[Rfam]
SAM riboswitch aptamer (S box leader): a 99-nucleotide RNA from Sporosarcina sp. Marseille-Q4063.
The match comes from Rfam's covariance-model search (83 bits).

RNA sequence: UUCUUAUCCAGAGAGGUGGAGGGACUGGCCCUUUGAAGCCUCAGCAACAGACAUUUAUGUACUGUGCUAAUUCCAGUAGCGCAAGCUUGGAGAUGAGAA
Numbered sequence: 001u002u003c004u005u006a007u008c009c010a011g012a013g014a015g016g017u018g019g020a021g022g023g024a025c026u027g028g029c030c031c032u033u034u035g036a037a038g039c040c041u042c043a044g045c046a047a048c049a050g051a052c053a054u055u056u057a058u059g060u061a062c063u064g065u066g067c068u069a070a071u072u073c074c075a076g077u078a079g080c081g082c083a084a085g086c087u088u089g090g091a092g093a094u095g096a097g098a099a
Stems, first nucleotide, its partner, number of pairs: 001099008013042005021031003025076004043068004048064002051060003072091001078087003